[Rfam]
RNA: mir-8364 microRNA precursor family
Organism: Pristionchus pacificus
RNA sequence: UCUUCAUUUCUCGUACUCUCUCACCGGUCAGCGAGACGAGAGAGCACUCGAAAUGAAGAAA
Dot-bracket structure: (((((((..(..((.((.((((...............)))).)).))..)..)))))))..